[Rfam]
RNA sequence: GCCUCAUGCCUGAAAGGGCGACGUGGCAACACGGAGCGAGAAGUCAGCAGAGGCCAUAGUAGCCGCUAACACAGGGCGAAGGGC
Numbered sequence: 001g002c003c004u005c006a007u008g009c010c011u012g013a014a015a016g017g018g019c020g021a022c023g024u025g026g027c028a029a030c031a032c033g034g035a036g037c038g039a040g041a042a043g044u045c046a047g048c049a050g051a052g053g054c055c056a057u058a059g060u061a062g063c064c065g066c067u068a069a070c071a072c073a074g075g076g077c078g079a080a081g082g083g084c
Stems, first nucleotide, its partner, number of pairs: 001027002004023001007020005044051002053084003062077003
Notes
The family of this 84-nucleotide sequence from Marinobacter persicus is "Group II catalytic intron D1-D4-1". Taxonomically the source falls in Marinobacter (Bacteria, Pseudomonadati, Pseudomonadota, Marinobacteraceae). The pairing is the family consensus, mapped onto this sequence. Its family is annotated with Group II intron splicing in the Gene Ontology.